[Rfam]
RNA: Small nucleolar RNA R160
RNA sequence: AGCAAAAUGAUGAAGUUAUCAGUCCGAAUUCCAAUGUGGAUUUUUCUUGAUAAUUAUGGUCUUCAAAGUUCUCUGAUUGCU
Numbered sequence: 001a002g003c004a005a006a007a008u009g010a011u012g013a014a015g016u017u018a019u020c021a022g023u024c025c026g027a028a029u030u031c032c033a034a035u036g037u038g039g040a041u042u043u044u045u046c047u048u049g050a051u052a053a054u055u056a057u058g059g060u061c062u063u064c065a066a067a068g069u070u071c072u073c074u075g076a077u078u079g080c081u
Base pairs, nucleotide, nucleotide: 001081002080003079004078005077